Rfam assigns this 55-nucleotide RNA from Ligilactobacillus salivarius to the family "Ribosomal protein L13 leader". Its family is annotated with regulation of gene expression in the Gene Ontology. The source organism's lineage runs through Bacteria, Bacillati, Bacillota, Bacilli and Ligilactobacillus salivarius. This family is a putative r-protein leader autoregulatory structure found in B. subtilis and other low-GC Gram-positive bacteria.
Nucleotides: 055
Base pairs, nucleotide, nucleotide: 006051007050008049009048010047011046016041017040018039019038020037021036022035023034
Number, partner (000 for none) and nucleotide at each position: 001000g002000g003000u004000a005000u006051u007050g008049u009048u010047u011046g012000c013000c014000c015000c016041a017040c018039a019038g020037u021036a022035a023034g024000c025000c026000c027000c028000g029000u030000u031000a032000a033000u034023c035022u036021u037020a038019u039018u040017g041016u042000a043000u044000g045000u046011c047010a048009a049008a050007c051006a052000u053000g054000u055000a